Annotation:
A member of the RNA family "Nitrogen stress-induced RNA 1" from Allocoleopsis franciscana, 52 nucleotides long. Taxonomically the source falls in Allocoleopsis franciscana (Bacteria, Cyanobacteriota, Coleofasciculales, Coleofasciculaceae). For this family Rfam cites "Heterocyst-specific transcription of NsiR1, a non-coding RNA encoded in a tandem array of direct repeats in cyanobacteria" (Ionescu et al., J Mol Biol, 2010). Pairs were carried over by alignment from the consensus structure. The match comes from Rfam's covariance-model search (45 bits). It is annotated as a small RNA.

[Rfam]
RNA sequence: AAGUAGAUGCACCCUGAUACUACCCCCAGCGUUCGCGUUGGGGGUUUCUUAU
Numbered sequence: 001a002a003g004u005a006g007a008u009g010c011a012c013c014c015u016g017a018u019a020c021u022a023c024c025c026c027c028a029g030c031g032u033u034c035g036c037g038u039u040g041g042g043g044g045u046u047u048c049u050u051a052u
Stems, first nucleotide, its partner, number of pairs: 003012002023044009